Notes: This 164-nucleotide RNA belongs to the Rfam family "Brucella sRNA CI27". Pairs were carried over by alignment from the consensus structure, which was predicted with RNAfold. A search with the family's covariance model found it, with a score of 64 bits. For this family Rfam cites "Identification of novel sRNAs in Brucella abortus 2308" (Dong et al., FEMS Microbiol Lett, 2014). Rfam classes the family as a small RNA.
[Rfam]
RNA sequence: GAUGGUUUAAAGCGUGUUCCGAAAGUGGGAACCGGUUUUCGGAAAAAACACGCGCCAAAACAAAAACCUAAAGCACAUUGCAUGAAUACGAUUGAAUGCAACGUGCUUUAGGUCGCAGCCUGAACGACAAAGGGUGCCGAAACGGGUCAGGAGCGUCUUGAUCU
Numbered sequence: 001g002a003u004g005g006u007u008u009a010a011a012g013c014g015u016g017u018u019c020c021g022a023a024a025g026u027g028g029g030a031a032c033c034g035g036u037u038u039u040c041g042g043a044a045a046a047a048a049c050a051c052g053c054g055c056c057a058a059a060a061c062a063a064a065a066a067c068c069u070a071a072a073g074c075a076c077a078u079u080g081c082a083u084g085a086a087u088a089c090g091a092u093u094g095a096a097u098g099c100a101a102c103g104u105g106c107u108u109u110a111g112g113u114c115g116c117a118g119c120c121u122g123a124a125c126g127a128c129a130a131a132g133g134g135u136g137c138c139g140a141a142a143c144g145g146g147u148c149a150g151g152a153g154c155g156u157c158u159u160g161a162u163c164u
Stems, first nucleotide, its partner, number of pairs: 012053007019042008028033001056160003060156002066113011078101004083096001120150004